A member of the RNA family "Y RNA" from Pan troglodytes, 110 nucleotides long.
Lineage of the source: Eukaryota > Chordata > Tetrapoda > Hominoidea > Pan.
The family's RNA type in Rfam is non-coding RNA gene.
[Rfam]
RNA sequence: GGCUGGUGCCAAGGGAGUGAGUUUUCUCUGUUGCUUGUUGAGUCCGUUACAGAUCGAACUCCUUGUUCCACUCUUUCCCCCUUCUCACUACUGCACUCGACUAGUCUUAA
Numbered sequence: 001g002g003c004u005g006g007u008g009c010c011a012a013g014g015g016a017g018u019g020a021g022u023u024u025u026c027u028c029u030g031u032u033g034c035u036u037g038u039u040g041a042g043u044c045c046g047u048u049a050c051a052g053a054u055c056g057a058a059c060u061c062c063u064u065g066u067u068c069c070a071c072u073c074u075u076u077c078c079c080c081c082u083u084c085u086c087a088c089u090a091c092u093g094c095a096c097u098c099g100a101c102u103a104g105u106c107u108u109a110a
Base pairs, nucleotide, nucleotide: 001106002105003104004103005102006101007100011097014094016089017088018087019086020085021084041072042071043070046068